RNA sequence: UGGAUAUACAGGCAGCAAUGCACUGUAUACAUUCGGUGUCUGAUAUUCGUAUUAAGCGUAUGUUAAGUACGCCAGCCCGGAUGGGAAAGCAGCCGUCAUUUGAUGGUUGCUUUUUUGUUUCC
Dot-bracket structure: ......((((((((....))).)))))..((((((....((((((....)))...((((((.....)))))))))..))))))...((((((((((......))))))))))..........